[Rfam]
Small nucleolar RNA Z279/snoR105/snoR108: a 103-nucleotide sequence from Lathyrus oleraceus. For this family Rfam cites "Experimental RNomics: identification of 140 candidates for small non-messenger RNAs in the plant Arabidopsis thaliana" (Marker et al., Curr Biol, 2002). The family's RNA type in Rfam is C/D-box small nucleolar RNA. Rfam 15.1 lists 906 matches to the family in 223 species. The family is grouped with related families in Rfam's "snoU13 clan". Lineage of the source: Eukaryota > Euphyllophyta > Spermatophyta > Fabales > Lathyrus. About the family: This family includes the plant snoRNAs known as Z279, snoR105 and snoR108.

RNA sequence: GAGAUAUGAUGAGUGGUCUAGUCUCGCGUAAAAUAUGCAAGUUGGGUGUCUGCCCCAAGCCUGAUAUGACAAUUGGGCACUCUCCGUUGACCAAUUUGAUCUC
Numbered sequence: 001g002a003g004a005u006a007u008g009a010u011g012a013g014u015g016g017u018c019u020a021g022u023c024u025c026g027c028g029u030a031a032a033a034u035a036u037g038c039a040a041g042u043u044g045g046g047u048g049u050c051u052g053c054c055c056c057a058a059g060c061c062u063g064a065u066a067u068g069a070c071a072a073u074u075g076g077g078c079a080c081u082c083u084c085c086g087u088u089g090a091c092c093a094a095u096u097u098g099a100u101c102u103c
Stems, first nucleotide, its partner, number of pairs: 001103004014093005023041002026038002044082007062075004